RNA sequence: CCCACGUGGCGGGUGGGGAGGGCUCCGCUGUUUCUAACCCUAAAUGGCUGUCGCGGCGCUCCCCGCGCUCGCCCGCUGUUUUACCCGCUGACUUUCAGCGGGCGAGGGGAGCGGCCCCCCGUGGCGGGGGGGCUGGGGGGUACAGGGAAGGGGUAAUAAGGGAAAGGGGUGGGGGGGCGGCAAUCAAAAAACGUCAGCGAGGGGUCUCUCUGCCGCCACGACCCACCCUGGGGCCCCGCUCCCGCCGCAGCCAGGGAGGCUCCGGCCGCCGCGCCCGUGGGGGAGAGGCCGCGGUCGGCCGGCUCGCGCCACUGCCGCCGCGAAGAGCUCGUCUCUGUCAGCCUCGGCGGCGGCCGGGAGCGCCGGGGCGCCCAGCAGAGCAAAACGGGAGCGGCGCCGCCGGGGGCAACCGCCGCGGCCCCCAACGCCGUGGGGCGCGCGGCCGGCGCCGCUCCGACACGC
Number, nucleotide and partner (000 for none) at each position: 001c000002c000003c000004a000005c220006g219007u218008g217009g216010c215011g214012g213013g000014u212015g211016g210017g209018g208019a207020g000021g206022g205023c204024u203025c202026c000027g000028c000029u000030g000031u000032u000033u000034c000035u000036a000037a000038c000039c000040c000041u000042a000043a000044a000045u000046g000047g000048c000049u000050g000051u000052c000053g000054c000055g000056g000057c000058g112059c111060u110061c109062c108063c000064c000065g000066c000067g000068c000069u000070c104071g103072c102073c101074c100075g099076c098077u097078g096079u000080u000081u000082u000083a000084c000085c000086c000087g198088c197089u196090g195091a194092c193093u191094u190095u189096c078097a077098g076099c075100g074101g073102g072103c071104g070105a000106g000107g000108g062109g061110a060111g059112c058113g000114g000115c000116c000117c000118c000119c000120c000121g000122u000123g000124g000125c000126g000127g000128g000129g000130g000131g000132g000133c000134u000135g000136g000137g000138g000139g000140g000141u000142a000143c000144a000145g000146g000147g000148a000149a000150g000151g000152g000153g000154u000155a000156a000157u000158a000159a000160g000161g000162g000163a000164a000165a000166g000167g000168g000169g000170u000171g000172g000173g000174g000175g000176g000177g000178c000179g000180g000181c000182a000183a000184u000185c000186a000187a000188a000189a095190a094191a093192c000193g092194u091195c090196a089197g088198c087199g000200a000201g000202g025203g024204g023205u022206c021207u019208c018209u017210c016211u015212g014213c012214c011215g010216c009217c008218a007219c006220g005221a000222c000223c000224c000225a000226c000227c000228c375229u374230g373231g000232g372233g371234c370235c000236c000237c000238g000239c000240u000241c000242c000243c000244g000245c000246c000247g000248c000249a000250g000251c000252c000253a000254g000255g000256g000257a000258g000259g369260c368261u367262c366263c365264g364265g363266c362267c000268g348269c347270c346271g345272c000273g000274c000275c000276c000277g000278u000279g000280g000281g000282g000283g000284a000285g000286a000287g000288g000289c000290c322291g321292c320293g319294g318295u000296c317297g316298g315299c314300c000301g310302g309303c308304u000305c000306g000307c000308g303309c302310c301311a000312c000313u000314g299315c298316c297317g296318c294319c293320g292321c291322g290323a000324a336325g335326a334327g333328c000329u000330c000331g000332u000333c327334u326335c325336u324337g000338u000339c000340a000341g000342c000343c000344u000345c271346g270347g269348c268349g000350g000351c000352g000353g000354c000355c000356g000357g000358g000359a000360g000361c000362g266363c265364c264365g263366g262367g261368g260369c259370g234371c233372c232373c230374a229375g228376c000377a000378g000379a000380g000381c000382a000383a000384a000385a000386c000387g000388g000389g454390a453391g452392c451393g450394g449395c448396g447397c446398c445399g000400c000401c000402g000403g000404g000405g000406g000407c000408a000409a000410c000411c000412g000413c442414c441415g440416c439417g438418g000419c000420c435421c434422c433423c432424a000425a000426c000427g000428c000429c000430g000431u000432g423433g422434g421435g420436c000437g000438c417439g416440c415441g414442g413443c000444c000445g398446g397447c396448g395449c394450c393451g392452c391453u390454c389455c000456g000457a000458c000459a000460c000461g000462c000
A member of the RNA family "Vertebrate telomerase RNA" from Nothoprocta ornata, 462 nucleotides long. Gene Ontology terms of the family: telomerase activity, telomere maintenance via telomerase and telomerase catalytic core complex. Taxonomically the source falls in Nothoprocta (Eukaryota, Sarcopterygii, Theropoda, Palaeognathae). The literature on the family includes a 2000 paper in Cell by Chen et al., "Secondary structure of vertebrate telomerase RNA".